[Rfam]
RNA: Small nucleolar RNA snoR26
Organism: Actinidia chinensis
RNA sequence: UGAGCAUCAGUGAUGAGUAACUCCUUUUGCACUUUGAUUGCUAGUGAAGAAACCUAUGGGGACAGUUGACUCUGAGAUGCUC
Dot-bracket structure: .(((((((...................................................................)))))))